[Rfam]
RNA sequence: GGCAGUUCUCAGGUGACCUACCCUGGAAUUGGGCUCCAUCCUCUCUGGUUCUGGGGUGCAUCACCCGAGAACCACC
Numbered sequence: 001g002g003c004a005g006u007u008c009u010c011a012g013g014u015g016a017c018c019u020a021c022c023c024u025g026g027a028a029u030u031g032g033g034c035u036c037c038a039u040c041c042u043c044u045c046u047g048g049u050u051c052u053g054g055g056g057u058g059c060a061u062c063a064c065c066c067g068a069g070a071a072c073c074a075c076c
Stems, first nucleotide, its partner, number of pairs: 002075001005072006012065005019058005025052009